[Rfam]
RNA sequence: AAGCAUGUUUCCAAGGGCUGUGGCUGCUCAUAGCCAUGGGAUCUCCAACUGCAUGCCAGAGUAACGGAGAGACUUUGACAGCCCAGGUUAUCACAGUGCCUGCUGUUGCCACUCAGCUCUCCUAUAUGU
Numbered sequence: 001a002a003g004c005a006u007g008u009u010u011c012c013a014a015g016g017g018c019u020g021u022g023g024c025u026g027c028u029c030a031u032a033g034c035c036a037u038g039g040g041a042u043c044u045c046c047a048a049c050u051g052c053a054u055g056c057c058a059g060a061g062u063a064a065c066g067g068a069g070a071g072a073c074u075u076u077g078a079c080a081g082c083c084c085a086g087g088u089u090a091u092c093a094c095a096g097u098g099c100c101u102g103c104u105g106u107u108g109c110c111a112c113u114c115a116g117c118u119c120u121c122c123u124a125u126a127u128g129u
Stems, first nucleotide, its partner, number of pairs: 011039002016035007066122006081109002084102004

A member of the RNA family "Small nucleolar RNA SNORA44" from Rattus norvegicus, 129 nucleotides long. Its family is annotated with nucleolus and RNA processing in the Gene Ontology. ACA44 is a member of the H/ACA class of snoRNA that guide the sites of modification of uridines to pseudouridines. A reference for the family is Huttenhofer et al. (2001), "RNomics: an experimental approach that identifies 201 candidates for novel, small, non-messenger RNAs in mouse", EMBO J.